RNA sequence: GCACCCGUCAUCGGGGAGUAGCCGCCCUGCCACCACCGGCAGGGGCCCGCGUCAACACACUUGGUCCUCACGACCAUGGCGCGGGCAGCAUCCAGCCUGGCAAGACCUUUGACUGCACGCCUUCCGGUCGGGCCGGGGUGGCGGCGCAGUCCAUCGUCUUUUCGCCGGCCCCGGGAU
Numbered sequence: 001g002c003a004c005c006c007g008u009c010a011u012c013g014g015g016g017a018g019u020a021g022c023c024g025c026c027c028u029g030c031c032a033c034c035a036c037c038g039g040c041a042g043g044g045g046c047c048c049g050c051g052u053c054a055a056c057a058c059a060c061u062u063g064g065u066c067c068u069c070a071c072g073a074c075c076a077u078g079g080c081g082c083g084g085g086c087a088g089c090a091u092c093c094a095g096c097c098u099g100g101c102a103a104g105a106c107c108u109u110u111g112a113c114u115g116c117a118c119g120c121c122u123u124c125c126g127g128u129c130g131g132g133c134c135g136g137g138g139u140g141g142c143g144g145c146g147c148a149g150u151c152c153a154u155c156g157u158c159u160u161u162u163c164g165c166c167g168g169c170c171c172c173g174g175g176a177u
Stems, first nucleotide, its partner, number of pairs: 026043003045086010062076005090177004
The record is a 177-nucleotide RNA sequence from beta proteobacterium AAP65, which matches "Manganese Mn2+ riboswitch aptamer (yybP-ykoY)" in Rfam. The pairing is the family consensus, mapped onto this sequence.